[Rfam]
RNA sequence: ACAGUCUGAAAAUCACUUGGGGGUCACCUGUGGCCCCUGGUGCGAUAACUAUGCCGAUAGCAGAAGGAGCAUUAAACUCAUUGCCCAUGGUAAAGUGUGGGGAGUGAUAUCCAUGUUCCUAUAAUC
Numbered sequence: 001a002c003a004g005u006c007u008g009a010a011a012a013u014c015a016c017u018u019g020g021g022g023g024u025c026a027c028c029u030g031u032g033g034c035c036c037c038u039g040g041u042g043c044g045a046u047a048a049c050u051a052u053g054c055c056g057a058u059a060g061c062a063g064a065a066g067g068a069g070c071a072u073u074a075a076a077c078u079c080a081u082u083g084c085c086c087a088u089g090g091u092a093a094a095g096u097g098u099g100g101g102g103a104g105u106g107a108u109a110u111c112c113a114u115g116u117u118c119c120u121a122u123a124a125u126c
Base pairs, nucleotide, nucleotide: 008049010046014042015041016040021035022034024032066119068117069116070115071114072113078107079106080105081104082103086099087098088097
The family of this 126-nucleotide RNA from Bucco capensis is "Small nucleolar RNA ACA64". A reference for the family is Schattner et al. (2006), "A computational screen for mammalian pseudouridylation guide H/ACA RNAs", RNA. Its family is annotated with nucleolus and RNA processing in the Gene Ontology. The match comes from Rfam's covariance-model search (51 bits). The family's RNA type in Rfam is H/ACA-box small nucleolar RNA. Pairs were carried over by alignment from the consensus structure, which was predicted with WAR.